This 154-nucleotide sequence from Carassius auratus belongs to the Rfam family "U12 minor spliceosomal RNA".
Nucleotides: 154
Stems, first nucleotide, its partner, number of pairs: 004023005032053008054071005085153004091149006100138001105131004110126005
Number, partner (000 for none) and nucleotide at each position: 001000a002000u003000g004023c005022c006021u007020u008019a009000a010000a011000c012000u013000g014000a015000u016000g017000a018000g019008u020007a021006a022005g023004g024000a025000a026000a027000a028000u029000a030000a031000c032053g033052a034051c035050g036049c037048g038047g039046g040000g041000u042000g043000a044000c045000g046039c047038c048037c049036g050035u051034g052033u053032u054071c055070u056069c057068g058067c059000a060000a061000a062000c063000u064000c065000u066000c067058g068057c069056g070055a071054g072000g073000a074000g075000a076000u077000u078000u079000u080000u081000g082000u083000a084000a085153g086152g087151g088150c089000a090000c091149a092148g093147g094146u095145c096144c097000g098000u099000c100138u101000g102000u103000a104000a105131g106130g107129u108128g109000a110126c111125u112124c113123a114122c115000c116000u117000a118000c119000u120000u121000a122114g123113u124112g125111a126110g127000a128108u129107g130106c131105c132000c133000g134000a135000g136000c137000a138100g139000a140000g141000c142000c143000a144096g145095g146094a147093u148092c149091u150088g151087c152086c153085c154000c

It is annotated as a spliceosomal small nuclear RNA. For this family Rfam cites "Pre-mRNA splicing: the discovery of a new spliceosome doubles the challenge" (Tarn and Steitz, Trends Biochem Sci, 1997). It scores 113 bits against the family's covariance model.